[Rfam]
RNA: Small nucleolar RNA Z256
Organism: Oryza meridionalis
RNA sequence: ACCUGCCGGUCAUGCUGACCAUUGCCACUGACAGGGCUACCAAGGUACACCGUAAACAGCUAGGCCGAGCUAAAGGGAUAGUU
Numbered sequence: 001a002c003c004u005g006c007c008g009g010u011c012a013u014g015c016u017g018a019c020c021a022u023u024g025c026c027a028c029u030g031a032c033a034g035g036g037c038u039a040c041c042a043a044g045g046u047a048c049a050c051c052g053u054a055a056a057c058a059g060c061u062a063g064g065c066c067g068a069g070c071u072a073a074a075g076g077g078a079u080a081g082u083u
Stems, first nucleotide, its partner, number of pairs: 003081003006077002
Dot-bracket structure: ..(((((....................................................................)).)))..